[Rfam]
A member of the RNA family "Small nucleolar RNA Z103" from Capsella rubella, 100 nucleotides long. Pairs were carried over by alignment from the consensus structure, which was predicted with PFOLD. On this family, see Chen et al., Nucleic Acids Res 2003: "The high diversity of snoRNAs in plants: identification and comparative study of 120 snoRNA genes from Oryza sativa". NCBI's taxonomy places the organism under Eukaryota, Magnoliopsida, eudicotyledons, Brassicales, Capsella. The match comes from Rfam's covariance-model search (84 bits).

RNA sequence: AUGGAAGUGAGGAUUAUUUCCCCAGAUGAUCGAAACUGAACAAACUGAGCGAUUGAUUUCUCUUUUUAAGAGUAUAUCCAAAGCCUUUUUUCUGAUCCAU
Numbered sequence: 001a002u003g004g005a006a007g008u009g010a011g012g013a014u015u016a017u018u019u020c021c022c023c024a025g026a027u028g029a030u031c032g033a034a035a036c037u038g039a040a041c042a043a044a045c046u047g048a049g050c051g052a053u054u055g056a057u058u059u060c061u062c063u064u065u066u067u068a069a070g071a072g073u074a075u076a077u078c079c080a081a082a083g084c085c086u087u088u089u090u091u092c093u094g095a096u097c098c099a100u
Base pairs, nucleotide, nucleotide: 001100002099003098004097005096